[Rfam]
RNA sequence: ACCUUUAAAUUUACAGCCUGAAUUAGGCUAGUGGCUGGUGACUUUUAGGUCGUCAUCAGCCU
Numbered sequence: 001a002c003c004u005u006u007a008a009a010u011u012u013a014c015a016g017c018c019u020g021a022a023u024u025a026g027g028c029u030a031g032u033g034g035c036u037g038g039u040g041a042c043u044u045u046u047a048g049g050u051c052g053u054c055a056u057c058a059g060c061c062u
Stems, first nucleotide, its partner, number of pairs: 015029004033061010

Rfam assigns this 62-nucleotide sequence from Candidatus Doolittlea endobia to the family "Pseudomonas sRNA P26". This small RNA (sRNA) was computationally identified in the genome of the opportunistic pathogen Pseudomonas aeruginosa and its expression verified by northern blot analysis. The family's RNA type in Rfam is non-coding RNA gene. The organism belongs to Candidatus Doolittlea, within Bacteria. A reference for the family is Livny et al. (2006), "Identification of 17 Pseudomonas aeruginosa sRNAs and prediction of sRNA-encoding genes in 10 diverse pathogens using the bioinformatic tool sRNAPredict2", Nucleic Acids Res. It scores 44 bits against the family's covariance model.